[Rfam]
RNA sequence: ACAGUACAAACUGAGCAGGCGAUGAAUCAUAUACGAUUCAUGGAGCCGGGUCGCCCUACACGCGGCAGCAGAUACUGCAUCUGUGGGACAGUA
Numbered sequence: 001a002c003a004g005u006a007c008a009a010a011c012u013g014a015g016c017a018g019g020c021g022a023u024g025a026a027u028c029a030u031a032u033a034c035g036a037u038u039c040a041u042g043g044a045g046c047c048g049g050g051u052c053g054c055c056c057u058a059c060a061c062g063c064g065g066c067a068g069c070a071g072a073u074a075c076u077g078c079a080u081c082u083g084u085g086g087g088a089c090a091g092u093a
Stems, first nucleotide, its partner, number of pairs: 010092004016087001018047003022041006050066005068084006
This 93-nucleotide RNA sequence belongs to the Rfam family "NiCo (Nickel/Cobalt) riboswitch aptamer". Its family is annotated with cobalt ion binding and metal ion homeostasis in the Gene Ontology. Pairs were carried over by alignment from the consensus structure, which is taken from published work. The family is grouped with related families in Rfam's "NiCo_riboswitches". For this family Rfam cites "Bacterial riboswitches cooperatively bind Ni(2+) or Co(2+) ions and control expression of heavy metal transporters" (Furukawa et al., Mol Cell, 2015).